[Rfam]
This 117-nucleotide RNA from Acidaminococcus sp. CAG:917 belongs to the Rfam family "Molybdenum/Tungsten riboswitch aptamer (Moco RNA motif)". NCBI's taxonomy places the organism under Bacteria, Bacillati, Bacillota, Negativicutes, Acidaminococcus. It scores 67 bits against the family's covariance model.
RNA sequence: UUCAGCUGCGUCCUCCGAGUCUUUAUAUCCUAAGGCGUCCGCUACGGAUUAAAGACCGGGGUUGUAUUGGAAACGAUACAGCCUCCCAUUGCGGAAAGGAGAACUUUUAUGAAACGG
Numbered sequence: 001u002u003c004a005g006c007u008g009c010g011u012c013c014u015c016c017g018a019g020u021c022u023u024u025a026u027a028u029c030c031u032a033a034g035g036c037g038u039c040c041g042c043u044a045c046g047g048a049u050u051a052a053a054g055a056c057c058g059g060g061g062u063u064g065u066a067u068u069g070g071a072a073a074c075g076a077u078a079c080a081g082c083c084u085c086c087c088a089u090u091g092c093g094g095a096a097a098g099g100a101g102a103a104c105u106u107u108u109a110u111g112a113a114a115c116g117g
Base pairs, nucleotide, nucleotide: 003111004110011103013101014100015099016098019056020055021054022053023052024051025050027049028048029047030046034043035042036041059084060083061082062081063080064079065078066077067076068075069074085094086093